[Rfam]
RNA sequence: GGAGGAGGCAUCCAAAGGGAUCGCAUUGAUCCCAAAUUUCAGAUUUAUAAAUUUUUCUCUUUCCCUCCCCUUCUCAAUAUUUGGGAUCAUGCUAUCCCUUUGGAUUCCUCCUU
Numbered sequence: 001g002g003a004g005g006a007g008g009c010a011u012c013c014a015a016a017g018g019g020a021u022c023g024c025a026u027u028g029a030u031c032c033c034a035a036a037u038u039u040c041a042g043a044u045u046u047a048u049a050a051a052u053u054u055u056u057c058u059c060u061u062u063c064c065c066u067c068c069c070c071u072u073c074u075c076a077a078u079a080u081u082u083g084g085g086a087u088c089a090u091g092c093u094a095u096c097c098c099u100u101u102g103g104a105u106u107c108c109u110c111c112u113u
Base pairs, nucleotide, nucleotide: 002113003112004111005110006109008107010105011104012103013102014101015100016099017098018097019096020095021094023092024091025090026089028088029087030086031085032084033083034082035081036080037079